[Rfam]
RNA sequence: UCGGGUCCAAUGCAGUCACCCGGCCGCUUCAAGGCAUUUUGCCCAAGCUCUGC
Number, nucleotide and partner (000 for none) at each position: 001u023002c022003g021004g020005g019006u018007c000008c000009a000010a000011u000012g053013c052014a051015g050016u000017c000018a006019c005020c004021c003022g002023g001024c000025c000026g000027c000028u000029u000030c000031a000032a000033g043034g042035c041036a040037u000038u000039u000040u036041g035042c034043c033044c000045a000046a000047g000048c000049u000050c015051u014052g013053c012